[Rfam]
Shown here is a 426-nucleotide RNA from Dothidotthia symphoricarpi, a member of the family "RNase MRP". The family's RNA type in Rfam is ribozyme. Rfam describes the family as follows. RNase MRP is an enzymatically active ribonucleoprotein with two distinct roles in eukaryotes. The organism belongs to Dothidotthia symphoricarpi, within Eukaryota.

RNA sequence: UCCUCGCCCGAAGAAUCGCAUCGAAGCACACACACAGAGCGCCUUCGGGCGUCUCUCCUGGCUUUGGGAGAAAGUCCCCGGACAUCGAUCUUCGCGAUCGCACUUUUCAGCAACGAACCGCCAUAGAAGCGCGGCCUCUUACCGCCUCCGCACUUCUCACCCCUCUUUUCCGCCUGCACUCUUGUUCCCAGCUUUCUCGACGCACCCGGGUGGAGGAGCCGGCACCAGGGCGAUGAUACGAGUCCGCUGGCCACCUUGCCCGUCUGCCAAGGGACUGUCGAGGGGACGGGAGGAGGAGGGAGUCGUCGGGUUGUGUCAGGUAUGAGGGUCUUCUCGUCCAGUUUAUGGUUAUGCGAUUGCCUCUGAGCAUCUCGAUAACACGAGGCGCGAGGGGGUAACUCAAUGGGGCUUAUUCUCGGCGCGAGG
Numbered sequence: 001u002c003c004u005c006g007c008c009c010g011a012a013g014a015a016u017c018g019c020a021u022c023g024a025a026g027c028a029c030a031c032a033c034a035c036a037g038a039g040c041g042c043c044u045u046c047g048g049g050c051g052u053c054u055c056u057c058c059u060g061g062c063u064u065u066g067g068g069a070g071a072a073a074g075u076c077c078c079c080g081g082a083c084a085u086c087g088a089u090c091u092u093c094g095c096g097a098u099c100g101c102a103c104u105u106u107u108c109a110g111c112a113a114c115g116a117a118c119c120g121c122c123a124u125a126g127a128a129g130c131g132c133g134g135c136c137u138c139u140u141a142c143c144g145c146c147u148c149c150g151c152a153c154u155u156c157u158c159a160c161c162c163c164u165c166u167u168u169u170c171c172g173c174c175u176g177c178a179c180u181c182u183u184g185u186u187c188c189c190a191g192c193u194u195u196c197u198c199g200a201c202g203c204a205c206c207c208g209g210g211u212g213g214a215g216g217a218g219c220c221g222g223c224a225c226c227a228g229g230g231c232g233a234u235g236a237u238a239c240g241a242g243u244c245c246g247c248u249g250g251c252c253a254c255c256u257u258g259c260c261c262g263u264c265u266g267c268c269a270a271g272g273g274a275c276u277g278u279c280g281a282g283g284g285g286a287c288g289g290g291a292g293g294a295g296g297a298g299g300g301a302g303u304c305g306u307c308g309g310g311u312u313g314u315g316u317c318a319g320g321u322a323u324g325a326g327g328g329u330c331u332u333c334u335c336g337u338c339c340a341g342u343u344u345a346u347g348g349u350u351a352u353g354c355g356a357u358u359g360c361c362u363c364u365g366a367g368c369a370u371c372u373c374g375a376u377a378a379c380a381c382g383a384g385g386c387g388c389g390a391g392g393g394g395g396u397a398a399c400u401c402a403a404u405g406g407g408g409c410u411u412a413u414u415c416u417c418g419g420c421g422c423g424a425g426g
Stems, first nucleotide, its partner, number of pairs: 002426006008419004014358006021068001022066006037053002040051004072411003076408004249330003252324002259319001264313001266311002296306001298304002360395005